Overview: This 103-nucleotide RNA sequence from Gammaproteobacteria bacterium LSUCC0112 belongs to the Rfam family "SAM-I/IV (S-adenosyl methionine) riboswitch aptamer". Lineage of the source: Bacteria > Pseudomonadati > Pseudomonadota > Gammaproteobacteria. The family is grouped with related families in Rfam's "SAM clan". The base pairs follow the family's consensus structure, which is taken from published work. The match comes from Rfam's covariance-model search (63 bits).
[Rfam]
RNA sequence: AAUCUGCAUCAAGAAAAGGCCCGACGGCCUUACCAACCUGCCCCCGGGCAAGGUGGACGCUAAAGCGGAUGCGGCUCCAACUGGAGCAACCAACCGGGAGAUG
Numbered sequence: 001a002a003u004c005u006g007c008a009u010c011a012a013g014a015a016a017a018g019g020c021c022c023g024a025c026g027g028c029c030u031u032a033c034c035a036a037c038c039u040g041c042c043c044c045c046g047g048g049c050a051a052g053g054u055g056g057a058c059g060c061u062a063a064a065g066c067g068g069a070u071g072c073g074g075c076u077c078c079a080a081c082u083g084g085a086g087c088a089a090c091c092a093a094c095c096g097g098g099a100g101a102u103g
Base pairs, nucleotide, nucleotide: 006072007071008070009069010068015031017030018029019028020027021026033056034055037053038052039051040049041048042047045098074087075086076085077084